[Rfam]
RNA sequence: AAACGAAUAUCAUUUGUACCGUAGACAGUAGGUGCCUUUUCGGGCUUAAUUUCCUACCGAGGUAUGUGGACGAUAGACAGCGCGCCAUCGAUCGCGGCGCGUUGAACGAUACCUCCAUGUCUACGUGGCAUGGGGGUUUUUCAUUGAACUA
Numbered sequence: 001a002a003a004c005g006a007a008u009a010u011c012a013u014u015u016g017u018a019c020c021g022u023a024g025a026c027a028g029u030a031g032g033u034g035c036c037u038u039u040u041c042g043g044g045c046u047u048a049a050u051u052u053c054c055u056a057c058c059g060a061g062g063u064a065u066g067u068g069g070a071c072g073a074u075a076g077a078c079a080g081c082g083c084g085c086c087a088u089c090g091a092u093c094g095c096g097g098c099g100c101g102u103u104g105a106a107c108g109a110u111a112c113c114u115c116c117a118u119g120u121c122u123a124c125g126u127g128g129c130a131u132g133g134g135g136g137u138u139u140u141u142c143a144u145u146g147a148a149c150u151a
Stems, first nucleotide, its partner, number of pairs: 028057005034045003112136010
The record is a 151-nucleotide RNA sequence from Geobacillus thermodenitrificans, which matches "Ribosomal protein L10 leader" in Rfam. Taxonomically the source falls in Geobacillus thermodenitrificans (Bacteria, Bacillota, Bacilli, Geobacillus). Rfam classes the family as a cis-regulatory leader. This family is a putative r-protein leader autoregulatory structure found in B. subtilis and other low-GC Gram-positive bacteria. The sequence is in the family's curated seed alignment.